This 141-nucleotide RNA sequence from Medicago truncatula belongs to the Rfam family "small nucleolar RNA snoR137". The literature on the family includes a 2009 paper in Nucleic Acids Res by Chen and Wu, "Mining small RNA sequencing data: a new approach to identify small nucleolar RNAs in Arabidopsis". Taxonomically the source falls in Medicago (Eukaryota, Embryophyta, Fabales, Trifolieae). The base pairs follow the family's consensus structure, which was predicted with RNAalifold. Gene Ontology terms of the family: RNA processing and nucleolus. It scores 57 bits against the family's covariance model. Rfam classes the family as an H/ACA-box small nucleolar RNA.
RNA sequence: GUUGCUUCUGUAAAUUCAUUAUGAGUGAUCUGUGUUCUGAUUGGUCAUUCAUAUUGGAGAAGCAUAUAACUGUUAUUGCCAGUCUUAAACAGCAUGAUGUGUAUUUUUGUUUCAUUGUGCUACCUGUCUACUGGUAAAUUU
Numbered sequence: 001g002u003u004g005c006u007u008c009u010g011u012a013a014a015u016u017c018a019u020u021a022u023g024a025g026u027g028a029u030c031u032g033u034g035u036u037c038u039g040a041u042u043g044g045u046c047a048u049u050c051a052u053a054u055u056g057g058a059g060a061a062g063c064a065u066a067u068a069a070c071u072g073u074u075a076u077u078g079c080c081a082g083u084c085u086u087a088a089a090c091a092g093c094a095u096g097a098u099g100u101g102u103a104u105u106u107u108u109g110u111u112u113c114a115u116u117g118u119g120c121u122a123c124c125u126g127u128c129u130a131c132u133g134g135u136a137a138a139u140u141u
Stems, first nucleotide, its partner, number of pairs: 003064006011051001013049003078135006091121003095117005